[Rfam]
RNA sequence: AGAUAGGUAGGCAGGUAGGUAGGUAGAUAGAUAGAUAGAUAGAUAGAUUGAUAGCUAGCUAGCUAGCUAGCUAGCUAGCUAGCUAGCUAGCUAGCUAGCUAGCUAGCUAGCUAGCUAGCUAGCUAGCUAGCUAGCUAGCUAGCUAGCUAGCUAGCUAGCUAGCUAGAUAGA
Numbered sequence: 001a002g003a004u005a006g007g008u009a010g011g012c013a014g015g016u017a018g019g020u021a022g023g024u025a026g027a028u029a030g031a032u033a034g035a036u037a038g039a040u041a042g043a044u045a046g047a048u049u050g051a052u053a054g055c056u057a058g059c060u061a062g063c064u065a066g067c068u069a070g071c072u073a074g075c076u077a078g079c080u081a082g083c084u085a086g087c088u089a090g091c092u093a094g095c096u097a098g099c100u101a102g103c104u105a106g107c108u109a110g111c112u113a114g115c116u117a118g119c120u121a122g123c124u125a126g127c128u129a130g131c132u133a134g135c136u137a138g139c140u141a142g143c144u145a146g147c148u149a150g151c152u153a154g155c156u157a158g159c160u161a162g163c164u165a166g167a168u169a170g171a
Stems, first nucleotide, its partner, number of pairs: 014060003018056002061100007069092004074087003116165013130147006

Actinobacteria sRNA Ms_IGR-5: a 171-nucleotide sequence. A search with the family's covariance model found it, with a score of 46 bits. The base pairs follow the family's consensus structure. A reference for the family is Li et al. (2013), "Identification of small RNAs in Mycobacterium smegmatis using heterologous Hfq", RNA.